[Rfam]
RNA sequence: GAAGACCCUGUUGAGCUUGACUCUAGUCUGGCACUGUAAGGAGACAUGAGAGGUGUAGCAUAAGUGGGAGAUGGCAACAUCGCCGGUGAAAUACCACUACUUUCAUCGUUUCCUUACUUACUCGGUUAGGCGGAGCGCGUGCCCCGAGGGCUUCGCGCCCCGGCGGUCACGGUGUUCUAGAGCCAAGCGUGUCAGAGUGGCGUUCGGCUUCGGCCGAUCGCCGUUAAUACUCCCGCGUGAUCCGAUUCGAGGACACUGCCAGGCGGGGAGUUUGACUGGGGCGGUACAUCUGUCAAAGAAUAACGCAGGUGUCCUAAGGCCAGCUCAGCGAGGACAGAAACCUCGCGUAGAGCAAAAGGGCAAAAGCUGGCUUGAUCUCGAUGUUCAGUACGCAUAGAGACUGCGAAAGCACGGCCUAUCGAUCCUUUUGGCUUGAAGAGUUUUCAGCAAGAGGUGUCAGAAAAGUUACCACAGGGAUAACUGGCUUGUGGCGGCCAAGCGUUCAUAGCGACGUCGCUUUUUGAUCCUUCGAUGU
Numbered sequence: 001g002a003a004g005a006c007c008c009u010g011u012u013g014a015g016c017u018u019g020a021c022u023c024u025a026g027u028c029u030g031g032c033a034c035u036g037u038a039a040g041g042a043g044a045c046a047u048g049a050g051a052g053g054u055g056u057a058g059c060a061u062a063a064g065u066g067g068g069a070g071a072u073g074g075c076a077a078c079a080u081c082g083c084c085g086g087u088g089a090a091a092u093a094c095c096a097c098u099a100c101u102u103u104c105a106u107c108g109u110u111u112c113c114u115u116a117c118u119u120a121c122u123c124g125g126u127u128a129g130g131c132g133g134a135g136c137g138c139g140u141g142c143c144c145c146g147a148g149g150g151c152u153u154c155g156c157g158c159c160c161c162g163g164c165g166g167u168c169a170c171g172g173u174g175u176u177c178u179a180g181a182g183c184c185a186a187g188c189g190u191g192u193c194a195g196a197g198u199g200g201c202g203u204u205c206g207g208c209u210u211c212g213g214c215c216g217a218u219c220g221c222c223g224u225u226a227a228u229a230c231u232c233c234c235g236c237g238u239g240a241u242c243c244g245a246u247u248c249g250a251g252g253a254c255a256c257u258g259c260c261a262g263g264c265g266g267g268g269a270g271u272u273u274g275a276c277u278g279g280g281g282c283g284g285u286a287c288a289u290c291u292g293u294c295a296a297a298g299a300a301u302a303a304c305g306c307a308g309g310u311g312u313c314c315u316a317a318g319g320c321c322a323g324c325u326c327a328g329c330g331a332g333g334a335c336a337g338a339a340a341c342c343u344c345g346c347g348u349a350g351a352g353c354a355a356a357a358g359g360g361c362a363a364a365a366g367c368u369g370g371c372u373u374g375a376u377c378u379c380g381a382u383g384u385u386c387a388g389u390a391c392g393c394a395u396a397g398a399g400a401c402u403g404c405g406a407a408a409g410c411a412c413g414g415c416c417u418a419u420c421g422a423u424c425c426u427u428u429u430g431g432c433u434u435g436a437a438g439a440g441u442u443u444u445c446a447g448c449a450a451g452a453g454g455u456g457u458c459a460g461a462a463a464a465g466u467u468a469c470c471a472c473a474g475g476g477a478u479a480a481c482u483g484g485c486u487u488g489u490g491g492c493g494g495c496c497a498a499g500c501g502u503u504c505a506u507a508g509c510g511a512c513g514u515c516g517c518u519u520u521u522u523g524a525u526c527c528u529u530c531g532a533u534g535u
Stems, first nucleotide, its partner, number of pairs: 007475004012471002014467005020271004027263007036117010046106007063098005070081002121251005131244004139170003143166001187238005274287001275285003288310006313414002319371006325351002328346006352361002376400004381395004402411003425453006433447004484525001486523001488522001490518006499509002
Dot-bracket structure: ......((((.(((((((.((((...(((((((..(((((((((((((((((..........(((((..((........))............))))).))))))).))))))))))...(((((.....((((....(((.(......................).)))................(((((..........................................)))))..))))..))))).....)))))))....))))..((((.....))).)((((((...........))))))..((....((((((((.((((((.......))))))...))((......))....))))))....((((.((((.......)))).)))).(((....))).))..........((((((..((((.......)))))))))).........)))))..))))))........(.(.(.((((((...((.......))...))))))...)).)..........

A member of the RNA family "Eukaryotic large subunit ribosomal RNA" from Camponotus floridanus, 535 nucleotides of a longer RNA.
The match comes from Rfam's covariance-model search (2863 bits).
The source organism's lineage runs through Eukaryota, Protostomia, Altocrustacea, Apocrita and Camponotus.
Its family is annotated with structural constituent of ribosome and ribosome in the Gene Ontology.